Rfam assigns this 378-nucleotide RNA sequence from Delftia acidovorans to the family "transfer-messenger RNA".
On this family, see Williams and Bartel, RNA 1996: "Phylogenetic analysis of tmRNA secondary structure".
Pairs were carried over by alignment from the consensus structure, which is taken from published work.

[Rfam]
RNA sequence: GGGGCUGUCCUGGUUUCGACGUGGGUUCGGGACCGGUGUGGUGCAUGUCGAGCUUGAGUGACGCUCGUAAAUCUCCAUUCAAAAAACUAACUGCAAACGACGAACGUUUCGCACUCGCCGCUUAAAUCCGGUGAGCCUUGCAACAGCACGCUGAUGGGCUGGGCAAGGGGGUAGCAAUACCUCCCGGCUGCAAGGGAAUUUACAUCAGCUGGCUGCGUGCUGGGCUUCUUAGUACGUGGCAAGAUCCAAGGAAGCUGGCAUCCCGGGUAGCGUGCGCCUGCGCGACUUGGGAGGCGAGACUCAAAACAGAACGCUAAACAUGUAGAUCUGCCCGGCGAAGGCUUGCGGACGCGGGUUCAAUUCCCGCCAGCUCCACCA
Number, nucleotide and partner (000 for none) at each position: 001g374002g373003g372004g371005c370006u369007g368008u000009c000010c000011u000012g000013g000014u000015u000016u000017c000018g000019a000020c347021g346022u345023g344024g343025g342026u341027u340028c000029g000030g000031g000032a000033c335034c334035g333036g332037u000038g331039u330040g329041g328042u000043g000044c322045a321046u320047g319048u318049c067050g066051a065052g064053c063054u082055u081056g080057a079058g078059u077060g076061a000062c000063g053064c052065u051066c050067g049068u000069a000070a000071a000072u000073c000074u000075c000076c060077a059078u058079u057080c056081a055082a054083a000084a000085a000086a000087c000088u000089a000090a000091c000092u000093g000094c000095a000096a000097a000098c000099g000100a000101c000102g000103a000104a000105c000106g000107u000108u000109u000110c000111g000112c000113a000114c000115u133116c000117g000118c130119c000120g128121c000122u000123u000124a000125a000126a000127u000128c120129c000130g118131g000132u000133g115134a000135g000136c195137c194138u193139u192140g191141c190142a000143a000144c161145a160146g159147c158148a000149c000150g209151c208152u207153g206154a205155u204156g203157g000158g147159c146160u145161g144162g000163g000164c000165a000166a000167g000168g000169g000170g000171g000172u000173a000174g000175c000176a000177a000178u000179a000180c000181c000182u000183c000184c000185c000186g000187g000188c000189u000190g141191c140192a139193a138194g137195g136196g000197a000198a000199u000200u000201u000202a000203c156204a155205u154206c153207a152208g151209c150210u000211g000212g240213c239214u238215g237216c236217g235218u234219g233220c232221u000222g000223g256224g255225c254226u253227u252228c000229u000230u000231a000232g220233u219234a218235c217236g216237u215238g214239g213240c212241a000242a000243g000244a000245u000246c000247c000248a000249a000250g000251g000252a227253a226254g225255c224256u223257g000258g000259c294260a000261u292262c291263c290264c289265g288266g287267g286268u285269a000270g283271c282272g281273u000274g314275c313276g312277c000278c309279u308280g307281c272282g271283c270284g000285a268286c267287u266288u265289g264290g263291g262292a261293g000294g259295c000296g000297a000298g000299a000300c000301u000302c000303a000304a000305a000306a000307c280308a279309g278310a000311a000312c276313g275314c274315u000316a000317a000318a048319c047320a046321u045322g044323u000324a000325g000326a000327u000328c041329u040330g039331c038332c036333c035334g034335g033336c000337g000338a000339a000340g027341g026342c025343u024344u023345g022346c021347g020348g000349a000350c000351g367352c366353g365354g364355g363356u000357u000358c000359a000360a000361u000362u000363c355364c354365c353366g352367c351368c007369a006370g005371c004372u003373c002374c001375a000376c000377c000378a000